The record is a 79-nucleotide sequence from Hermetia illucens, which matches "drz-agam-1 ribozyme" in Rfam. Pairs were carried over by alignment from the consensus structure, which is taken from published work.
[Rfam]
RNA sequence: UACUACCAAACUCCAUCUCAACCUCCACGUGGUGACCGCUGGGAGCUUCUUCUUAACGAAAAGCUGCAGACGGGGAAGG
Numbered sequence: 001u002a003c004u005a006c007c008a009a010a011c012u013c014c015a016u017c018u019c020a021a022c023c024u025c026c027a028c029g030u031g032g033u034g035a036c037c038g039c040u041g042g043g044a045g046c047u048u049c050u051u052c053u054u055a056a057c058g059a060a061a062a063g064c065u066g067c068a069g070a071c072g073g074g075g076a077a078g079g
Stems, first nucleotide, its partner, number of pairs: 013079002016075004021033003044065005050059001052058001
Dot-bracket structure: ............((.((((.(((.......)))..........(((((.(.(.....)).)))))......))))..))